Shown here is an 85-nucleotide sequence from Dehalobacter sp. 12DCB1, a member of the family "c-di-GMP-I riboswitch aptamer". Pairs were carried over by alignment from the consensus structure, which is taken from published work. A search with the family's covariance model found it, with a score of 92 bits. GEMM was predicted in a large-scale screen for bacterial structured RNA regulatory elements. Its family is annotated with cyclic-di-GMP binding in the Gene Ontology.
[Rfam]
RNA sequence: AAACGAUAAUGGCAAAUCUGUCGAAAGACAGAGACGCAAAGCCACGGGUCUAAGGCCGAAAGGUUAUGACAGCCGGGUUACCGAA
Numbered sequence: 001a002a003a004c005g006a007u008a009a010u011g012g013c014a015a016a017u018c019u020g021u022c023g024a025a026a027g028a029c030a031g032a033g034a035c036g037c038a039a040a041g042c043c044a045c046g047g048g049u050c051u052a053a054g055g056c057c058g059a060a061a062g063g064u065u066a067u068g069a070c071a072g073c074c075g076g077g078u079u080a081c082c083g084a085a
Base pairs, nucleotide, nucleotide: 012037013036017032018031019030020029021028022027040079041078042077043076045075046074047073048070049069050068055064056063057062